[Rfam]
RNA sequence: AAGCACGGUGGGAGCUGUUAACCCAAGGGCGGUAGCGUG
Numbered sequence: 001a002a003g004c005a006c007g008g009u010g011g012g013a014g015c016u017g018u019u020a021a022c023c024c025a026a027g028g029g030c031g032g033u034a035g036c037g038u039g
Base pairs, nucleotide, nucleotide: 009025010024011023012022
A member of the RNA family "JUMPstart RNA" from Vibrio sediminis, 39 nucleotides long.
It scores 46 bits against the family's covariance model.
It is annotated as a cis-regulatory element.